RNA sequence: GCCGCCACUAUGCAAGUCUGCGUGAGUGACUUGGUAUAAUCCAGUGGUGGCUGAGAGAAAUUCCAGCUUUAGGAAGCAGGACUGCUCAGUCUGAUGAGUAACUCUGUGCCAAAAGACCUGGAACACUU
Numbered sequence: 001g002c003c004g005c006c007a008c009u010a011u012g013c014a015a016g017u018c019u020g021c022g023u024g025a026g027u028g029a030c031u032u033g034g035u036a037u038a039a040u041c042c043a044g045u046g047g048u049g050g051c052u053g054a055g056a057g058a059a060a061u062u063c064c065a066g067c068u069u070u071a072g073g074a075a076g077c078a079g080g081a082c083u084g085c086u087c088a089g090u091c092u093g094a095u096g097a098g099u100a101a102c103u104c105u106g107u108g109c110c111a112a113a114a115g116a117c118c119u120g121g122a123a124c125a126c127u128u
Base pairs, nucleotide, nucleotide: 005047006046007045008044009043018034019033020030021028022027063121064120065119066118068115069114070113072110073109077106078105079104080103085098086097087096
Rfam assigns this 128-nucleotide sequence from Bagarius yarrelli to the family "Small nucleolar RNA SNORA65". For this family Rfam cites "RNomics: an experimental approach that identifies 201 candidates for novel, small, non-messenger RNAs in mouse" (Huttenhofer et al., EMBO J, 2001). A search with the family's covariance model found it, with a score of 79 bits. The organism belongs to Bagarius, within Eukaryota. Rfam's curators write: U65 belongs to the H/ACA class of snoRNAs which are thought to guide the sites of modification of uridines to pseudouridines.